[Rfam]
A member of the RNA family "Selenocysteine insertion sequence 4" from Alkaliphilus peptidifermentans, 38 nucleotides long. Pairs were carried over by alignment from the consensus structure, which was predicted with PFOLD. By type it is a cis-regulatory element. Lineage of the source: Bacteria > Bacillota > Clostridia > Alkaliphilus > Alkaliphilus peptidifermentans.
RNA sequence: GGAACUUGUACACGUUGCGUUGCAACGAUAUCAAAGGA
Numbered sequence: 001g002g003a004a005c006u007u008g009u010a011c012a013c014g015u016u017g018c019g020u021u022g023c024a025a026c027g028a029u030a031u032c033a034a035a036g037g038a
Base pairs, nucleotide, nucleotide: 006030013027014026015025016024017023018022